[Rfam]
RNA sequence: CAGAUUGGUAGAGGCGCGGGGCUCAUGAGUAGCCUGCGGCACCGGCCCGGCAAGGCCGCCGCAGGGGAAAGGGAUCCCCGCCGAAGAAAACGGAGGCUUGCCGGCCGCCGGAUUCUGGGCCGUCGCAGAAGAUGCGCCGGACUGUCACGAACCCCUCGUGGAGCGCUAUCAUCGGU
Numbered sequence: 001c002a003g004a005u006u007g008g009u010a011g012a013g014g015c016g017c018g019g020g021g022c023u024c025a026u027g028a029g030u031a032g033c034c035u036g037c038g039g040c041a042c043c044g045g046c047c048c049g050g051c052a053a054g055g056c057c058g059c060c061g062c063a064g065g066g067g068a069a070a071g072g073g074a075u076c077c078c079c080g081c082c083g084a085a086g087a088a089a090a091c092g093g094a095g096g097c098u099u100g101c102c103g104g105c106c107g108c109c110g111g112a113u114u115c116u117g118g119g120c121c122g123u124c125g126c127a128g129a130a131g132a133u134g135c136g137c138c139g140g141a142c143u144g145u146c147a148c149g150a151a152c153c154c155c156u157c158g159u160g161g162a163g164c165g166c167u168a169u170c171a172u173c174g175g176u
Stems, first nucleotide, its partner, number of pairs: 006171006016081006023074002033065007085116004091110003095106002117143002120140003124136004145161006
Shown here is a 176-nucleotide RNA from Gemmiger sp. An120, a member of the family "Lysine riboswitch aptamer". Gene Ontology term of the family: lysine biosynthetic process. Pairs were carried over by alignment from the consensus structure, which is taken from published work.